[Rfam]
RNA: Eukaryotic small subunit ribosomal RNA, nucleotides 22 to 611
Organism: Pneumocystis wakefieldiae
RNA sequence: AGUCAUAUGCUUGUCUCAAAGAUUAAGCCAUGCAUGUCUAAGUAUAAGCAAGUUAUACAGUGAAACUGCGAAUGGCUCAUUAUAUCAGUUAUAGUUUAUUUGAUAGUACCUUACUACUUGGAUAACCGUGGUAAUUCUAGAGCUAAUACAUGCAAAAAAUCCCGACUUUAUGGAAGGGAUGUAUUUAUUAGAUAAAAAACCAAUGCCUUCGGGCUCCUUGGUGAUUCAUGAUAACUUCGCGAAUCGCAUGGCCUUGCGCUGGCGAUGGUUCAUUCAAAUUUCUGCCCUAUCAACUUUCGAUGGUAGGAUAGAGGCCUACCAUGGUUUCGACGGGUAACGGGGAAUAAGGGUUCUAUUCCGGAGAGGGAGCCUGAGAAACGGCUACCACAUCCAAGGAAGGCAGCAGGCGCGCAAAUUACCCAAUCCCGACACGGGGAGGUAGUGACAAUAAAUAACAAUACAGGGCUCUUUUGGGUCUUGUAAUUGGAAUGAGUACAAUUUAGAUACCUUAACGAGGAACAAUUGGAGGGCAAGUCUGGUGCCAGCAGCCGCGGUAAUUCCAGCUCCAAUAGCGUAUAUUAAAGUUGCUG
Numbered sequence: 001a002g003u004c005a006u007a008u009g010c011u012u013g014u015c016u017c018a019a020a021g022a023u024u025a026a027g028c029c030a031u032g033c034a035u036g037u038c039u040a041a042g043u044a045u046a047a048g049c050a051a052g053u054u055a056u057a058c059a060g061u062g063a064a065a066c067u068g069c070g071a072a073u074g075g076c077u078c079a080u081u082a083u084a085u086c087a088g089u090u091a092u093a094g095u096u097u098a099u100u101u102g103a104u105a106g107u108a109c110c111u112u113a114c115u116a117c118u119u120g121g122a123u124a125a126c127c128g129u130g131g132u133a134a135u136u137c138u139a140g141a142g143c144u145a146a147u148a149c150a151u152g153c154a155a156a157a158a159a160u161c162c163c164g165a166c167u168u169u170a171u172g173g174a175a176g177g178g179a180u181g182u183a184u185u186u187a188u189u190a191g192a193u194a195a196a197a198a199a200c201c202a203a204u205g206c207c208u209u210c211g212g213g214c215u216c217c218u219u220g221g222u223g224a225u226u227c228a229u230g231a232u233a234a235c236u237u238c239g240c241g242a243a244u245c246g247c248a249u250g251g252c253c254u255u256g257c258g259c260u261g262g263c264g265a266u267g268g269u270u271c272a273u274u275c276a277a278a279u280u281u282c283u284g285c286c287c288u289a290u291c292a293a294c295u296u297u298c299g300a301u302g303g304u305a306g307g308a309u310a311g312a313g314g315c316c317u318a319c320c321a322u323g324g325u326u327u328c329g330a331c332g333g334g335u336a337a338c339g340g341g342g343a344a345u346a347a348g349g350g351u352u353c354u355a356u357u358c359c360g361g362a363g364a365g366g367g368a369g370c371c372u373g374a375g376a377a378a379c380g381g382c383u384a385c386c387a388c389a390u391c392c393a394a395g396g397a398a399g400g401c402a403g404c405a406g407g408c409g410c411g412c413a414a415a416u417u418a419c420c421c422a423a424u425c426c427c428g429a430c431a432c433g434g435g436g437a438g439g440u441a442g443u444g445a446c447a448a449u450a451a452a453u454a455a456c457a458a459u460a461c462a463g464g465g466c467u468c469u470u471u472u473g474g475g476u477c478u479u480g481u482a483a484u485u486g487g488a489a490u491g492a493g494u495a496c497a498a499u500u501u502a503g504a505u506a507c508c509u510u511a512a513c514g515a516g517g518a519a520c521a522a523u524u525g526g527a528g529g530g531c532a533a534g535u536c537u538g539g540u541g542c543c544a545g546c547a548g549c550c551g552c553g554g555u556a557a558u559u560c561c562a563g564c565u566c567c568a569a570u571a572g573c574g575u576a577u578a579u580u581a582a583a584g585u586u587g588c589u590g
Stems, first nucleotide, its partner, number of pairs: 001580003005577007014450001016448001020443001021410001027408003031405003036069002041067003048061002076363003086284003091279002095277002101272003117152001119150002126142001129139003159180005166173002185234006199222004205214003244265004249261004286334003293325003300322008338360004342353004365386002368383003388399001390397002416441001418440003424436005456486003459482010493513002495510001497509001523569006536563004545552002